The family of this 73-nucleotide sequence is "Fluoride riboswitch aptamer (crcB RNA motif)". It is one of the family's seed sequences. Gene Ontology terms of the family: response to fluoride and positive regulation of gene expression.
[Rfam]
RNA sequence: CGAAUGAGAGGGAAUGAAGUUCUCCCUAGGGAAACCAGAACUGCUGAAUAUAGCUGAUGACUUCUACGAUUAU
Numbered sequence: 001c002g003a004a005u006g007a008g009a010g011g012g013a014a015u016g017a018a019g020u021u022c023u024c025c026c027u028a029g030g031g032a033a034a035c036c037a038g039a040a041c042u043g044c045u046g047a048a049u050a051u052a053g054c055u056g057a058u059g060a061c062u063u064c065u066a067c068g069a070u071u072a073u
Stems, first nucleotide, its partner, number of pairs: 010026004016064006043054004